[Rfam]
RNA sequence: GCAUGGCUGUGGAUUUAUGGUGGGCGUCUGCCCCAUGGCCCCACCAUAGUGUACUCCAUGCAAGAGCAGUUGGCCCCCCUGAACCAUGGCCGCCCUAGUGCGUGUGGGUCCCGGUCCCUGAAAUGGGGGGCACAGCU
Dot-bracket structure: ((((((.(......((((((.((((.(.........)).))).))))))...).)).))))............((((((.....((....(((((..........)))..)..)....))....)))))).......
Numbered sequence: 001g002c003a004u005g006g007c008u009g010u011g012g013a014u015u016u017a018u019g020g021u022g023g024g025c026g027u028c029u030g031c032c033c034c035a036u037g038g039c040c041c042c043a044c045c046a047u048a049g050u051g052u053a054c055u056c057c058a059u060g061c062a063a064g065a066g067c068a069g070u071u072g073g074c075c076c077c078c079c080u081g082a083a084c085c086a087u088g089g090c091c092g093c094c095c096u097a098g099u100g101c102g103u104g105u106g107g108g109u110c111c112c113g114g115u116c117c118c119u120g121a122a123a124u125g126g127g128g129g130g131c132a133c134a135g136c137u
Stems, first nucleotide, its partner, number of pairs: 001061004005056002008053001015049006022042003025038001027037001074130006085120002091114001092111001093108003
A member of the RNA family "Small nucleolar RNA SNORA42/SNORA80 family" from Chelonoidis abingdonii, 137 nucleotides long. Rfam 15.1 lists 1,535 matches to the family in 183 species. On this family, see Schattner et al., RNA 2006: "A computational screen for mammalian pseudouridylation guide H/ACA RNAs". Rfam's curators write: The members of this family belong to the H/ACA class of snoRNAs that guide the sites of modification of uridines to pseudouridines. Human ACA42 (SNORA42) was cloned from HeLa cells by immunoprecipitation with anti-GAR1 antibody. The source organism's lineage runs through Eukaryota, Eumetazoa, Sauropsida, Testudinidae and Chelonoidis nigra species complex.